[Rfam]
RNA sequence: GAUCGUUGGAUGAGUGUGAGGAGUUGGAUUGAUUUCAUUCAAUCUGAGCCCCACAUUCAUCAUGUGCUCAU
Numbered sequence: 001g002a003u004c005g006u007u008g009g010a011u012g013a014g015u016g017u018g019a020g021g022a023g024u025u026g027g028a029u030u031g032a033u034u035u036c037a038u039u040c041a042a043u044c045u046g047a048g049c050c051c052c053a054c055a056u057u058c059a060u061c062a063u064g065u066g067c068u069c070a071u
Stems, first nucleotide, its partner, number of pairs: 004066001006064001009061010020050002024047009
Dot-bracket structure: ...(.(..((((((((((.((..(((((((((......))))))))).)).))))))))))..).).....
Background:
This 71-nucleotide RNA from Nicotiana tabacum belongs to the Rfam family "MIR6151 microRNA precursor family". Its family is annotated with RISC complex and miRNA-mediated post-transcriptional gene silencing in the Gene Ontology. The base pairs follow the family's consensus structure, which was predicted with RNAalifold.